[Rfam]
RNA sequence: AGCAAUACCGCACUGAUACGGGUAUGGUCCGACGCCUAUUGAAGGUUAAUAUAGGAUCUCCAUACCCUAUUCCGAUUCAAUAGUCCACGGCAUACAGAACGGUAACAUAUUUCUUCAAUGAUCUGAGCUUGGGUACACGGAGAAACCCAAUACUUGGGAGGAUGGGUCAUAUGGCCAAAUUGAGCUGG
Dot-bracket structure: ...................((((((((.((.......................))....))))))))...((.(.(((((([[.((....].].......))...(((((..(.((....((((....((((((..........))))))..(....).)))))))..))))).....))))))).))
Numbered sequence: 001a002g003c004a005a006u007a008c009c010g011c012a013c014u015g016a017u018a019c020g021g022g023u024a025u026g027g028u029c030c031g032a033c034g035c036c037u038a039u040u041g042a043a044g045g046u047u048a049a050u051a052u053a054g055g056a057u058c059u060c061c062a063u064a065c066c067c068u069a070u071u072c073c074g075a076u077u078c079a080a081u082a083g084u085c086c087a088c089g090g091c092a093u094a095c096a097g098a099a100c101g102g103u104a105a106c107a108u109a110u111u112u113c114u115u116c117a118a119u120g121a122u123c124u125g126a127g128c129u130u131g132g133g134u135a136c137a138c139g140g141a142g143a144a145a146c147c148c149a150a151u152a153c154u155u156g157g158g159a160g161g162a163u164g165g166g167u168c169a170u171a172u173g174g175c176c177a178a179a180u181u182g183a184g185c186u187g188g
Stems, first nucleotide, its partner, number of pairs: 020067008029055002071188002074185001076184006082093001083091001085102002106173005113166001115165002121163004129150006153158001

Notes: This 188-nucleotide RNA from Anopheles stephensi belongs to the Rfam family "drz-agam-2-2 ribozyme". Pairs were carried over by alignment from the consensus structure, which is taken from published work. A search with the family's covariance model found it, with a score of 136 bits. Its family is annotated with catalytic activity in the Gene Ontology. The source organism's lineage runs through Eukaryota, Metazoa, Mandibulata, Pancrustacea and Neocellia. The literature on the family includes a 2009 paper in Science by Webb et al., "Widespread occurrence of self-cleaving ribozymes".